Notes
Rfam assigns this 144-nucleotide RNA sequence from Penicillium solitum to the family "A. fumigatus sRNA Afu_254". Pairs were carried over by alignment from the consensus structure, which was predicted with WAR. Lineage of the source: Eukaryota > Opisthokonta > Ascomycota > Eurotiomycetes > Penicillium. For this family Rfam cites "Small ncRNA transcriptome analysis from Aspergillus fumigatus suggests a novel mechanism for regulation of protein synthesis" (Jochl et al., Nucleic Acids Res, 2008).
RNA sequence: AUCCAAACCAAACACUACUCUUAAGCUUCUUUUUCAAGGUUCUUUACCUACCAACCUCUAUAUUCAUCAUGUCUCCCUGCGCCUGCAACUGCUGCUCCGGCGAGUGCAACUCCUGCUCUUGCUCUACCUGCACUGUAUGUCAUU
Dot-bracket structure: .............................................................................(((....(((.....)))....)))...(((......((....))......))).............